[Rfam]
RNA: U1 spliceosomal RNA
Organism: Carlito syrichta
RNA sequence: AAACUUACCUAGCAGGGGAGAUACCAUGAUCACGAAGGUGGUUUUCCCAGGGCGAGGCUUAUCCCUUGCACUCUUGAUGUGCUUACUUUUGUGAUUUCCCCAAAUGUGAGAAGCUUGACUGCAUAAUUUGUAGUAGUGAGGAACUGUGUUUGCAUUCUCCCCUG
Dot-bracket structure: ...........((((((((((.(((((..........)))))))))))((((.(.(((.((((............)))).)))..))))).((((((..(.......)..))).))).))))...............(.((.(..(((....)))..))).)..
Numbered sequence: 001a002a003a004c005u006u007a008c009c010u011a012g013c014a015g016g017g018g019a020g021a022u023a024c025c026a027u028g029a030u031c032a033c034g035a036a037g038g039u040g041g042u043u044u045u046c047c048c049a050g051g052g053c054g055a056g057g058c059u060u061a062u063c064c065c066u067u068g069c070a071c072u073c074u075u076g077a078u079g080u081g082c083u084u085a086c087u088u089u090u091g092u093g094a095u096u097u098c099c100c101c102a103a104a105u106g107u108g109a110g111a112a113g114c115u116u117g118a119c120u121g122c123a124u125a126a127u128u129u130g131u132a133g134u135a136g137u138g139a140g141g142a143a144c145u146g147u148g149u150u151u152g153c154a155u156u157c158u159c160c161c162c163u164g
Stems, first nucleotide, its partner, number of pairs: 012122004016048006023042005049090004054086001056083003060079004092117003095113003100108001138162001140160002143158001146155003